[Rfam]
RNA sequence: GGUAUGUAUUUUAACCCCACGGUUAGCCCCGGAAAUUAAUCGUGUUGAAAUAUAAG
Dot-bracket structure: ......(((((((....(((((((((.........))))))))).)))))))....
This 56-nucleotide RNA from Priestia veravalensis belongs to the Rfam family "Ribosomal protein L13 leader". The family's RNA type in Rfam is cis-regulatory leader. Rfam's curators write: This family is a putative r-protein leader autoregulatory structure found in B. subtilis and other low-GC Gram-positive bacteria. It is located in the 5' untranslated regions of mRNAs encoding the L13-S9 (rplM-rpsI) ribosomal protein operon. The base pairs follow the family's consensus structure, which was predicted with CMfinder. Taxonomically the source falls in Priestia (Bacteria, Bacillati, Bacilli, Caryophanales).